RNA sequence: CGCCGCUUGGCGAAAAUUUUCACGACAGGACGCGGCUUAGUAGGCGAUGCUCGAAAUGCGGCGAAGUGAAAAAAGGAG
Numbered sequence: 001c002g003c004c005g006c007u008u009g010g011c012g013a014a015a016a017u018u019u020u021c022a023c024g025a026c027a028g029g030a031c032g033c034g035g036c037u038u039a040g041u042a043g044g045c046g047a048u049g050c051u052c053g054a055a056a057u058g059c060g061g062c063g064a065a066g067u068g069a070a071a072a073a074a075g076g077a078g
Stems, first nucleotide, its partner, number of pairs: 001012004020069004031063003035059002043052002
RNA: RT-18 RNA